RNA sequence: UGGACAGGGGGGUCUCUGCCAUCCGGCAGGGCCUGUCCGGCAGGUUGUGCGUGUCGCGUGCGACCAGUGGUUGUCGCUCGGGGGUGAUCUCCC
Numbered sequence: 001u002g003g004a005c006a007g008g009g010g011g012g013u014c015u016c017u018g019c020c021a022u023c024c025g026g027c028a029g030g031g032c033c034u035g036u037c038c039g040g041c042a043g044g045u046u047g048u049g050c051g052u053g054u055c056g057c058g059u060g061c062g063a064c065c066a067g068u069g070g071u072u073g074u075c076g077c078u079c080g081g082g083g084g085u086g087a088u089c090u091c092c093c
Stems, first nucleotide, its partner, number of pairs: 001039008014031007043065008